Notes:
This 51-nucleotide RNA sequence belongs to the Rfam family "Streptococcus sRNA SpF59 (ldcC RNA)". The base pairs follow the family's consensus structure, which was predicted with mfold. A reference for the family is Mann et al. (2012), "Control of virulence by small RNAs in Streptococcus pneumoniae", PLoS Pathog. Rfam's curators put it in the seed alignment. The family's RNA type in Rfam is small RNA.
RNA sequence: UGACCGCUUAUUAUAAGCUGAGGCUACACGGACGGCCGGGUCAAAUGCCGA
Numbered sequence: 001u002g003a004c005c006g007c008u009u010a011u012u013a014u015a016a017g018c019u020g021a022g023g024c025u026a027c028a029c030g031g032a033c034g035g036c037c038g039g040g041u042c043a044a045a046u047g048c049c050g051a
Stems, first nucleotide, its partner, number of pairs: 001043005006018005